[Rfam]
Nucleotides: 076
Base pairs, nucleotide, nucleotide: 001075002074003073004072029038030037031036
Number, partner (000 for none) and nucleotide at each position: 001075g002074c003073c004072a005000c006000a007000u008000g009000a010000u011000g012000u013000g014000a015000u016000a017000u018000a019000g020000a021000u022000u023000g024000c025000a026000u027000g028000a029038g030037c031036a032000u033000u034000g035000c036031u037030g038029c039000a040000a041000a042000g043000a044000u045000g046000a047000c048000c049000a050000u051000c052000u053000a054000u055000c056000u057000a058000u059000c060000a061000c062000c063000c064000a065000a066000g067000a068000c069000u070000g071000a072004u073003g074002g075001c076000u
Rfam assigns this 76-nucleotide sequence from Onychostoma macrolepis to the family "Small nucleolar RNA SNORD83". It scores 53 bits against the family's covariance model. The source organism's lineage runs through Eukaryota, Vertebrata, Euteleostomi, Cypriniphysae and Onychostoma. Rfam classes the family as a C/D-box small nucleolar RNA.